The record is a 134-nucleotide RNA from Camelus ferus, which matches "U11 spliceosomal RNA" in Rfam.

[Rfam]
RNA sequence: GAAAAAGGCAUCUGUCGUGAGUGGCAAACAUAGGGCAGCUCGAUUGCUUUUCACGUGGUAUCGACAUCAAGAGAUUUUGGAAGUCUAAUUAUUUGGUGUUUGGGCAGCUGGAGAUUGUUGGUCCUGGUGCCUGU
Numbered sequence: 001g002a003a004a005a006a007g008g009c010a011u012c013u014g015u016c017g018u019g020a021g022u023g024g025c026a027a028a029c030a031u032a033g034g035g036c037a038g039c040u041c042g043a044u045u046g047c048u049u050u051u052c053a054c055g056u057g058g059u060a061u062c063g064a065c066a067u068c069a070a071g072a073g074a075u076u077u078u079g080g081a082a083g084u085c086u087a088a089u090u091a092u093u094u095g096g097u098g099u100u101u102g103g104g105c106a107g108c109u110g111g112a113g114a115u116u117g118u119u120g121g122u123c124c125u126g127g128u129g130c131c132u133g134u
Stems, first nucleotide, its partner, number of pairs: 008084002011081002013026005032050007056079003060075003102132004107128005113123004
Dot-bracket structure: .......((.(((((((....))))).....(((((((.....))))))).....(((.(((..........))).))))).)).................((((.(((((.((((...)))))))))))))..
Rfam classes the family as a spliceosomal small nuclear RNA.